[Rfam]
RNA sequence: GUACCUAGGAUGGUCGUAGAGUUCAGCAGAUUGAACUACAGAGAGAUGUACCAUUUGUCUGCUGUAUCU
Numbered sequence: 001g002u003a004c005c006u007a008g009g010a011u012g013g014u015c016g017u018a019g020a021g022u023u024c025a026g027c028a029g030a031u032u033g034a035a036c037u038a039c040a041g042a043g044a045g046a047u048g049u050a051c052c053a054u055u056u057g058u059c060u061g062c063u064g065u066a067u068c069u
Stems, first nucleotide, its partner, number of pairs: 001067004009037001011035001014029001016027002044056005
Shown here is a 69-nucleotide RNA from Galemys pyrenaicus, a member of the family "Small nucleolar RNA SNORD77". Pairs were carried over by alignment from the consensus structure, which was predicted with RNAalifold. Gene Ontology terms of the family: RNA processing and nucleolus. The organism belongs to Galemys, within Eukaryota. It is annotated as a C/D-box small nucleolar RNA. Rfam describes the family as follows. U77 belongs to the C/D family of snoRNAs.